[Rfam]
RNA: glmS glucosamine-6-phosphate activated ribozyme aptamer
Organism: Alicyclobacillus tolerans
RNA sequence: ACGAAGAUGAUAGCGCCUGGGCUGCCUCUUCUAAGAGGACAGUUGACGCGGUGGAGGUUGGCGAAAGUUUCGGCGGAUGCCUCCCGGUGCUAAGCUGCGCCGCAAGUGAAGUCCGAAAACUGGCAGGUGACUGCGAGCACAAGGACGAGCAAGCUA
Number, nucleotide and partner (000 for none) at each position: 001a000002c000003g000004a000005a000006g000007a000008u000009g000010a000011u000012a000013g000014c000015g000016c000017c000018u000019g000020g044021g043022c042023u041024g040025c000026c038027u037028c035029u000030u000031c000032u000033a000034a000035g028036a000037g027038g026039a000040c024041a023042g022043u021044u020045g000046a000047c000048g000049c000050g000051g000052u000053g084054g083055a082056g081057g080058u000059u000060g000061g000062c072063g071064a070065a000066a000067g000068u000069u000070u064071c063072g062073g000074c000075g000076g000077a000078u000079g000080c057081c056082u055083c054084c053085c102086g101087g100088u099089g098090c097091u000092a000093a000094g000095c000096u000097g090098c089099g088100c087101c086102g085103c000104a000105a000106g000107u151108g150109a000110a000111g146112u145113c000114c000115g000116a000117a000118a000119a000120c137121u136122g000123g134124c133125a132126g131127g000128u000129g000130a000131c126132u125133g124134c123135g000136a121137g120138c000139a000140c000141a000142a000143g000144g000145a112146c111147g000148a000149g000150c108151a107152a000153g000154c000155u000156a000